[Rfam]
RNA: MIR8565 microRNA precursor family
Organism: Amborella trichopoda
Nucleotides: 154
Stems, first nucleotide, its partner, number of pairs: 002153007010145004015140010026129003030125002034121013048107012061094008069082005
Number, partner (000 for none) and nucleotide at each position: 001000u002153c003152c004151a005150c006149a007148c008147u009000c010145a011144u012143g013142u014000g015140u016139g017138u018137a019136g020135g021134a022133c023132u024131c025000a026129a027128a028127a029000a030125g031124a032000c033000c034121a035120c036119u037118a038117u039116u040115a041114a042113a043112u044111u045110u046109g047000a048107c049106a050105c051104a052103g053102a054101u055100c056099u057098c058097u059096a060000a061094a062093a063092a064091a065090g066089u067088u068087a069082u070081c071080a072079c073078a074000u075000a076000a077000g078073u079072g080071u081070g082069a083000g084000a085000c086000u087068u088067g089066a090065c091064u092063u093062u094061u095000c096059u097058a098057g099056a100055g101054a102053u103052c104051u105050g106049u107048g108000c109046u110045a111044a112043a113042u114041u115040u116039a117038a118037u119036a120035g121034u122000g123000a124031u125030c126000a127028u128027u129026u130000g131024g132023g133022g134021u135020c136019c137018u138017a139016c140015a141000c142013a143012c144011a145010u146000a147008g148007g149006u150005g151004u152003g153002g154000g